Rfam assigns this 101-nucleotide RNA sequence from Conger conger to the family "Vault RNA".

RNA sequence: GCGUCGGCUUAGCUCAGUGGUUACUUCGUUGUCAAACUUUCAGUUUCGCCAAACUCUACCUUCUCCGGAGGGUCGAACCACGGGCGCUGUCCGACGUUUUU
Numbered sequence: 001g002c003g004u005c006g007g008c009u010u011a012g013c014u015c016a017g018u019g020g021u022u023a024c025u026u027c028g029u030u031g032u033c034a035a036a037c038u039u040u041c042a043g044u045u046u047c048g049c050c051a052a053a054c055u056c057u058a059c060c061u062u063c064u065c066c067g068g069a070g071g072g073u074c075g076a077a078c079c080a081c082g083g084g085c086g087c088u089g090u091c092c093g094a095c096g097u098u099u100u101u
Stems, first nucleotide, its partner, number of pairs: 002096006012085004017081004025077004
Annotation:
A search with the family's covariance model found it, with a score of 72 bits.